[Rfam]
RNA sequence: AGGCAGCCUCUUUAUCUGAUUACAGUGGCAUUGGAGGUGUUGUGUUGCUCGGAUAGUAAAUCUUCUGCUCUUCAGAUUAGCUGAGGGGGAGGCUCCCACUUCCCUCCUUGAAGCUGGUCUAGUAGUCUUGAGAACAUU
Numbered sequence: 001a002g003g004c005a006g007c008c009u010c011u012u013u014a015u016c017u018g019a020u021u022a023c024a025g026u027g028g029c030a031u032u033g034g035a036g037g038u039g040u041u042g043u044g045u046u047g048c049u050c051g052g053a054u055a056g057u058a059a060a061u062c063u064u065c066u067g068c069u070c071u072u073c074a075g076a077u078u079a080g081c082u083g084a085g086g087g088g089g090a091g092g093c094u095c096c097c098a099c100u101u102c103c104c105u106c107c108u109u110g111a112a113g114c115u116g117g118u119c120u121a122g123u124a125g126u127c128u129u130g131a132g133a134a135c136a137u138u
Stems, first nucleotide, its partner, number of pairs: 002041004007037002009034002013030001015028002062132003067127001069125001074120005080114003085106008